[Rfam]
RNA sequence: GUCUGCGAAUGAAGAGAAUUAUGAAAUAUACAGUUAUCCCUGGCUGAUAUUCUGUGCUGAUAUUUCUUUGAAGUCUGACGCAAAA
Numbered sequence: 001g002u003c004u005g006c007g008a009a010u011g012a013a014g015a016g017a018a019u020u021a022u023g024a025a026a027u028a029u030a031c032a033g034u035u036a037u038c039c040c041u042g043g044c045u046g047a048u049a050u051u052c053u054g055u056g057c058u059g060a061u062a063u064u065u066c067u068u069u070g071a072a073g074u075c076u077g078a079c080g081c082a083a084a085a
Stems, first nucleotide, its partner, number of pairs: 002084001004082004